[Rfam]
RNA: 6C RNA
RNA sequence: CGUGACUCGGUCCACCCCCCUGACCGAGUCCGCGCGGUCCCCGUCCUCCCACCCGACGGGGGCCGCGCCCU
Numbered sequence: 001c002g003u004g005a006c007u008c009g010g011u012c013c014a015c016c017c018c019c020c021u022g023a024c025c026g027a028g029u030c031c032g033c034g035c036g037g038u039c040c041c042c043g044u045c046c047u048c049c050c051a052c053c054c055g056a057c058g059g060g061g062g063c064c065g066c067g068c069c070c071u
Base pairs, nucleotide, nucleotide: 004030005029006028007027008026009025010024011023012022033067034066035065036064037063038062039061040060041059042058043057044056045055
Dot-bracket structure: ...(((((((((.........)))))))))..(((((((((((((.........)))))))))))))....